[Rfam]
RNA sequence: UGUCGAUAAUAGCAAACCUAUCGAAAGGUAGGGACGCAAAGCCAUAGGGCCUUUUGCUUCAAGCAAAUGGCAGCCUAGCCGCCGAA
Numbered sequence: 001u002g003u004c005g006a007u008a009a010u011a012g013c014a015a016a017c018c019u020a021u022c023g024a025a026a027g028g029u030a031g032g033g034a035c036g037c038a039a040a041g042c043c044a045u046a047g048g049g050c051c052u053u054u055u056g057c058u059u060c061a062a063g064c065a066a067a068u069g070g071c072a073g074c075c076u077a078g079c080c081g082c083c084g085a086a
Stems, first nucleotide, its partner, number of pairs: 012037002017032006041079002046076003049071003055065004
Shown here is an 86-nucleotide sequence from Natranaerovirga hydrolytica, a member of the family "c-di-GMP-I riboswitch aptamer".
The family's consensus secondary structure is taken from published work.
Rfam links the family to the GO term cyclic-di-GMP binding.
Lineage of the source: Bacteria > Bacillota > Lachnospirales > Natranaerovirgaceae > Natranaerovirga.